The record is a 277-nucleotide RNA sequence from Piliocolobus tephrosceles, which matches "Mason-Pfizer monkey virus packaging signal" in Rfam. This family represents a group of sequences that are related to the Mason-Pfizer monkey virus (MPMV) packaging signal. The packaging signal is located in the 5' UTR and is required for specific RNA encapsidation. It scores 216 bits against the family's covariance model. Taxonomically the source falls in Piliocolobus (Eukaryota, Theria, Boreoeutheria, Catarrhini).
[Rfam]
RNA sequence: UGGCGCCCGAACGUGGGACCCGGACAUGGGGGAAAAAGUGAGGAAGAAGGCACUGAAGUCGGCCGAAAUUCAAAGUGGAAGAAAAACUCCUCCGGACACCACGGGAGCCUGCCGCGUCAGAACCAGAGGUGACUAACAGUGUCUGAUUAUGGGACAAGAAUUAAGCCAGCAUCAAUUUAUGUAGGGCAAUUAAAAGAGGCUUUAAAAACACGAGGAGUAAAGGUUAAAAGUAAUGAUUUGUUUAAGUUUUUUGAUUUUGUAAAGGAUACCUGCCCUU
Numbered sequence: 001u002g003g004c005g006c007c008c009g010a011a012c013g014u015g016g017g018a019c020c021c022g023g024a025c026a027u028g029g030g031g032g033a034a035a036a037a038g039u040g041a042g043g044a045a046g047a048a049g050g051c052a053c054u055g056a057a058g059u060c061g062g063c064c065g066a067a068a069u070u071c072a073a074a075g076u077g078g079a080a081g082a083a084a085a086a087c088u089c090c091u092c093c094g095g096a097c098a099c100c101a102c103g104g105g106a107g108c109c110u111g112c113c114g115c116g117u118c119a120g121a122a123c124c125a126g127a128g129g130u131g132a133c134u135a136a137c138a139g140u141g142u143c144u145g146a147u148u149a150u151g152g153g154a155c156a157a158g159a160a161u162u163a164a165g166c167c168a169g170c171a172u173c174a175a176u177u178u179a180u181g182u183a184g185g186g187c188a189a190u191u192a193a194a195a196g197a198g199g200c201u202u203u204a205a206a207a208a209c210a211c212g213a214g215g216a217g218u219a220a221a222g223g224u225u226a227a228a229a230g231u232a233a234u235g236a237u238u239u240g241u242u243u244a245a246g247u248u249u250u251u252u253g254a255u256u257u258u259g260u261a262a263a264g265g266a267u268a269c270c271u272g273c274c275c276u277u
Stems, first nucleotide, its partner, number of pairs: 006032003013027003039047001087131001089129001091127002097120001100116001102114003139155002142153004162204003165200003211253008221239006262277004267272001